The record is an 83-nucleotide RNA sequence from Acidaminobacter hydrogenoformans, which matches "c-di-GMP-I-GGC riboswitch aptamer" in Rfam.
Clan: c-di-GMP_I riboswitch clan.
NCBI's taxonomy places the organism under Bacteria, Bacillati, Clostridia, Acidaminobacter, Acidaminobacter hydrogenoformans.
[Rfam]
RNA sequence: CAUAAUAAAGGCAAACCCGCCGAAAGACGGGGACGCAAAGCCAGGAGUCUAAGGGUUAGACUACGACCGUCCGGCUGCUAUGC
Number, nucleotide and partner (000 for none) at each position: 001c000002a000003u080004a079005a000006u000007a000008a000009a000010g000011g036012c035013a000014a000015a000016c031017c030018c029019g028020c000021c026022g000023a000024a000025a000026g021027a000028c019029g018030g017031g016032g000033a000034c069035g012036c011037a000038a000039a076040g075041c074042c073043a000044g072045g071046a070047g067048u066049c065050u000051a000052a000053g000054g000055g000056u000057u000058a000059g000060a000061c000062u000063a000064c000065g049066a048067c047068c000069g034070u046071c045072c044073g042074g041075c040076u039077g000078c000079u004080a003081u000082g000083c000
Gene Ontology term of the family: cyclic-di-GMP binding. The match comes from Rfam's covariance-model search (69 bits).